[Rfam]
RNA sequence: AGGCAACCUCCUGCGGUGACGAUGGCAAUUGGAGGUGUUAAACUGCUCGGAAAUUAAGUAAUGCUUUUGCUCUUCAGACUUGCUGAGGUCAUAUCCCCAUUGAAGCUGGUCUAGUAAGCCUAAGCACAUU
Numbered sequence: 001a002g003g004c005a006a007c008c009u010c011c012u013g014c015g016g017u018g019a020c021g022a023u024g025g026c027a028a029u030u031g032g033a034g035g036u037g038u039u040a041a042a043c044u045g046c047u048c049g050g051a052a053a054u055u056a057a058g059u060a061a062u063g064c065u066u067u068u069g070c071u072c073u074u075c076a077g078a079c080u081u082g083c084u085g086a087g088g089u090c091a092u093a094u095c096c097c098c099a100u101u102g103a104a105g106c107u108g109g110u111c112u113a114g115u116a117a118g119c120c121u122a123a124g125c126a127c128a129u130u
Stems, first nucleotide, its partner, number of pairs: 002039004007035002009032002064124003069119003076112005082106003087098002

Shown here is a 130-nucleotide sequence from Gossypium raimondii, a member of the family "Small nucleolar RNA snoR77".
Its family is annotated with RNA processing and nucleolus in the Gene Ontology.
By type it is an H/ACA-box small nucleolar RNA.
Taxonomically the source falls in Gossypium (Eukaryota, Streptophytina, rosids, Malvaceae).